This 96-nucleotide RNA sequence from Streptococcus sp. DD10 belongs to the Rfam family "23S methyl RNA motif".
The family's RNA type in Rfam is cis-regulatory element.
Taxonomically the source falls in Streptococcus (Bacteria, Bacillati, Lactobacillales, Streptococcaceae).
RNA sequence: ACAUCGCUGAUUUCCAUCAAACCUGUUGUGAUGAAAGUUAACGAUGUCGUAACCAUGUUAUUCGCUGAGCUUGACUCCGAGUAAUGUGGCUAUUUU
Numbered sequence: 001a002c003a004u005c006g007c008u009g010a011u012u013u014c015c016a017u018c019a020a021a022c023c024u025g026u027u028g029u030g031a032u033g034a035a036a037g038u039u040a041a042c043g044a045u046g047u048c049g050u051a052a053c054c055a056u057g058u059u060a061u062u063c064g065c066u067g068a069g070c071u072u073g074a075c076u077c078c079g080a081g082u083a084a085u086g087u088g089g090c091u092a093u094u095u096u
Base pairs, nucleotide, nucleotide: 002046003045004044005043006042008040009039010038011037012036013035015033016032017031018030019029051091053089054088055087056086057085058084059083060082061081062080063079064078067077068076069075
Overview:
A reference for the family is Weinberg et al. (2007), "Identification of 22 candidate structured RNAs in bacteria using the CMfinder comparative genomics pipeline", Nucleic Acids Res. Rfam links the family to the GO term regulation of gene expression.